[Rfam]
RNA sequence: AGAGCCUGGAGAUCAGAGCAGGAGCCUCCAUGUGGUGGUCCCAGUCAGCUGUGCAAGCUGCAAAUCCUGUU
Numbered sequence: 001a002g003a004g005c006c007u008g009g010a011g012a013u014c015a016g017a018g019c020a021g022g023a024g025c026c027u028c029c030a031u032g033u034g035g036u037g038g039u040c041c042c043a044g045u046c047a048g049c050u051g052u053g054c055a056a057g058c059u060g061c062a063a064a065u066c067c068u069g070u071u
Base pairs, nucleotide, nucleotide: 009042011040012039013038014037017071018070019069020068021067022066023065024036025035026034046060047059048058049057050056

Record summary: Shown here is a 71-nucleotide RNA from Sphenodon punctatus, a member of the family "Mammalian CPEB3 ribozyme". A search with the family's covariance model found it, with a score of 41 bits. About the family: The mammalian CPEB3 ribozyme is a self cleaving RNA located in the second intron of the CPEB3 gene which belongs to a family of genes regulating messenger RNA polyadenylation.